[Rfam]
Overview
The family of this 80-nucleotide RNA from Sagittarius serpentarius is "Small nucleolar RNA SNORD111". For this family Rfam cites "Purified box C/D snoRNPs are able to reproduce site-specific 2'-O-methylation of target RNA in vitro" (Galardi et al., Mol Cell Biol, 2002).
RNA sequence: GAGCCUGAAGCGAUGAGCUUGGUUCAUGUCUCUUCUCUGAGAUUUAUGCUGGAGAUACUCCAGUCACUCUGAUCAGGCAC
Numbered sequence: 001g002a003g004c005c006u007g008a009a010g011c012g013a014u015g016a017g018c019u020u021g022g023u024u025c026a027u028g029u030c031u032c033u034u035c036u037c038u039g040a041g042a043u044u045u046a047u048g049c050u051g052g053a054g055a056u057a058c059u060c061c062a063g064u065c066a067c068u069c070u071g072a073u074c075a076g077g078c079a080c
Stems, first nucleotide, its partner, number of pairs: 001080001003078003